RNA sequence: CGUCUGCUAAGCUGCUUGGGGGAUGGCUUGGCUUGGGGGCCGAAGAAGGACGUGCCAAGCUGCGAUAAGCCCCGAGGAGGCGCAGGGAGCCUUAGAUCCGGGGAUCUCCGAAUGGGACUUCCUGCCAUUUUGGCACUCCGUAAGGAGGGGGAACCCGGGGAAUUGAAACAUCUUAGUACCCGGAGGAAAAGAAAUCAAUAGAGAUGCCGUUAGUAAGGGCGACCGAAAGCGGCACAAGGCAAACCGAAUACCAUCCUGAAAAGGGUGGUAGAUGUGGAGUUUGGACAGUCUCCAAUGCCUCCCUGCUGAACCUGAACCACCUGGAAAGGUGGGCCAUAGAAGGUGAUAGCCCUGUAGGGGUAAGGCAGGAAGCUACGAGGGACUGUAUCCAGAGUACCGUGCGUCGUAAUUCGCGCGGGAAUACGGGUGGCACUAACAUCCAACCUUAAAUACCUCCCAAGUCCGAUAGCGAACAAGUACCGUGAGGGAAAGCUGAAAAGUAACCCGAAAGGGUGGUGAAAAGAGCCUGAAACCAAGCAGCGAUAAACUU
Numbered sequence: 001c002g003u004c005u006g007c008u009a010a011g012c013u014g015c016u017u018g019g020g021g022g023a024u025g026g027c028u029u030g031g032c033u034u035g036g037g038g039g040c041c042g043a044a045g046a047a048g049g050a051c052g053u054g055c056c057a058a059g060c061u062g063c064g065a066u067a068a069g070c071c072c073c074g075a076g077g078a079g080g081c082g083c084a085g086g087g088a089g090c091c092u093u094a095g096a097u098c099c100g101g102g103g104a105u106c107u108c109c110g111a112a113u114g115g116g117a118c119u120u121c122c123u124g125c126c127a128u129u130u131u132g133g134c135a136c137u138c139c140g141u142a143a144g145g146a147g148g149g150g151g152a153a154c155c156c157g158g159g160g161a162a163u164u165g166a167a168a169c170a171u172c173u174u175a176g177u178a179c180c181c182g183g184a185g186g187a188a189a190a191g192a193a194a195u196c197a198a199u200a201g202a203g204a205u206g207c208c209g210u211u212a213g214u215a216a217g218g219g220c221g222a223c224c225g226a227a228a229g230c231g232g233c234a235c236a237a238g239g240c241a242a243a244c245c246g247a248a249u250a251c252c253a254u255c256c257u258g259a260a261a262a263g264g265g266u267g268g269u270a271g272a273u274g275u276g277g278a279g280u281u282u283g284g285a286c287a288g289u290c291u292c293c294a295a296u297g298c299c300u301c302c303c304u305g306c307u308g309a310a311c312c313u314g315a316a317c318c319a320c321c322u323g324g325a326a327a328g329g330u331g332g333g334c335c336a337u338a339g340a341a342g343g344u345g346a347u348a349g350c351c352c353u354g355u356a357g358g359g360g361u362a363a364g365g366c367a368g369g370a371a372g373c374u375a376c377g378a379g380g381g382a383c384u385g386u387a388u389c390c391a392g393a394g395u396a397c398c399g400u401g402c403g404u405c406g407u408a409a410u411u412c413g414c415g416c417g418g419g420a421a422u423a424c425g426g427g428u429g430g431c432a433c434u435a436a437c438a439u440c441c442a443a444c445c446u447u448a449a450a451u452a453c454c455u456c457c458c459a460a461g462u463c464c465g466a467u468a469g470c471g472a473a474c475a476a477g478u479a480c481c482g483u484g485a486g487g488g489a490a491a492g493c494u495g496a497a498a499a500g501u502a503a504c505c506c507g508a509a510a511g512g513g514u515g516g517u518g519a520a521a522a523g524a525g526c527c528u529g530a531a532a533c534c535a536a537g538c539a540g541c542g543a544u545a546a547a548c549u550u
Stems, first nucleotide, its partner, number of pairs: 011541009025527001026493002030464002032461006038454002048109003051064003070103005079091003114123003136147004154185001155183005165172002195202002206233005217223001236447004244277003254265004287384004297373002311359003317332005335339001341353003397418007425441005480487002

Archaeal large subunit ribosomal RNA: a 550-nucleotide part of an RNA from Thermogymnomonas acidicola.
A search with the family's covariance model found it, with a score of 2826 bits.
Its Rfam clan is "LSU clan".
The base pairs follow the family's consensus structure, which is taken from published work.